[Rfam]
RNA sequence: ACAAUGGUACUCCCGCCCAGCCACAGACACAAGCAAUGGGGGCGGCUCUGUCAGAACGACAGCUGGGGUGAAACUCCCGUGG
Numbered sequence: 001a002c003a004a005u006g007g008u009a010c011u012c013c014c015g016c017c018c019a020g021c022c023a024c025a026g027a028c029a030c031a032a033g034c035a036a037u038g039g040g041g042g043c044g045g046c047u048c049u050g051u052c053a054g055a056a057c058g059a060c061a062g063c064u065g066g067g068g069u070g071a072a073a074c075u076c077c078c079g080u081g082g
Base pairs, nucleotide, nucleotide: 012079013045014044015043016042017041018040046065048062050060051059052058066078067077068076
Shown here is an 82-nucleotide RNA sequence from Ruthenibacterium lactatiformans, a member of the family "pemK RNA". The organism belongs to Ruthenibacterium, within Bacteria.